[Rfam]
A member of the RNA family "Glycine riboswitch aptamer" from Hathewaya proteolytica, 104 nucleotides long.
It scores 56 bits against the family's covariance model.
Taxonomically the source falls in Hathewaya proteolytica (Bacteria, Bacillota, Clostridiaceae, Hathewaya).
RNA sequence: AUGAAAUUUUAGAGAGAUGGCCUACAUGGCAGCCGAAGGAACAAAUAUAUCAUCAUGCCGAGAUGAUGUAUGAAAUUCUCAGGCAAAAGUAUCUAAAGUGGACA
Dot-bracket structure: .....((((((((......(((.....))).(((((..(((...((((((((((.......))))))))))....))))).))).......)))))))).....